[Rfam]
RNA sequence: GGGGGUGCCAAGGUUUCGACGGAGGUUGGAAGCUAAGGUGGCAUGUCGAGGAUGUCAGUGGGCCUCGUAAAAAAACUGACAACAAUACAAACGCCGAUACUGACGUUCGUUACGCACUAGCAGCUUAAUUGCUGCUGCGUCUUGGGAUUCAUCUCCCGCGUGAACUUGAGACGUCAAUUUAGUGGGAUAGCUUCUGUGAGCGCCUGUGGCUCAGAAGCGAAAUCAAAGCAGGAUCGUCUGUCAAAUAUCCUGACUGCGGGAGCCUUGACGGGUUAAAUCCAAAACACAGUCUAAACAUGUAGAAGCCUUAAGUGAAAGACGUUCGGACGCGGGUUCGAUUCCCGCCACCUCCACCA
Numbered sequence: 001g002g003g004g005g006u007g008c009c010a011a012g013g014u015u016u017c018g019a020c021g022g023a024g025g026u027u028g029g030a031a032g033c034u035a036a037g038g039u040g041g042c043a044u045g046u047c048g049a050g051g052a053u054g055u056c057a058g059u060g061g062g063c064c065u066c067g068u069a070a071a072a073a074a075a076c077u078g079a080c081a082a083c084a085a086u087a088c089a090a091a092c093g094c095c096g097a098u099a100c101u102g103a104c105g106u107u108c109g110u111u112a113c114g115c116a117c118u119a120g121c122a123g124c125u126u127a128a129u130u131g132c133u134g135c136u137g138c139g140u141c142u143u144g145g146g147a148u149u150c151a152u153c154u155c156c157c158g159c160g161u162g163a164a165c166u167u168g169a170g171a172c173g174u175c176a177a178u179u180u181a182g183u184g185g186g187a188u189a190g191c192u193u194c195u196g197u198g199a200g201c202g203c204c205u206g207u208g209g210c211u212c213a214g215a216a217g218c219g220a221a222a223u224c225a226a227a228g229c230a231g232g233a234u235c236g237u238c239u240g241u242c243a244a245a246u247a248u249c250c251u252g253a254c255u256g257c258g259g260g261a262g263c264c265u266u267g268a269c270g271g272g273u274u275a276a277a278u279c280c281a282a283a284a285c286a287c288a289g290u291c292u293a294a295a296c297a298u299g300u301a302g303a304a305g306c307c308u309u310a311a312g313u314g315a316a317a318g319a320c321g322u323u324c325g326g327a328c329g330c331g332g333g334u335u336c337g338a339u340u341c342c343c344g345c346c347a348c349c350u351c352c353a354c355c356a
Base pairs, nucleotide, nucleotide: 001352002351003350004349005348006347007346020325021324022323023322025320026319027318031313034310035309036308037307038306039305042299043298044297045296046295047067048066049065050064051063054080055079056078057077058076059075118137119136120135121134122133123132124131138173139172140171141170142169143168146166148164149163150162151161152160154187155186156185157184158183159182190218191217192216193215194214195213196212198210202234204232205231236273237272238271239270240269241268242267243266244265248261249260250259252291253290254289255288256285329345330344331343332342333341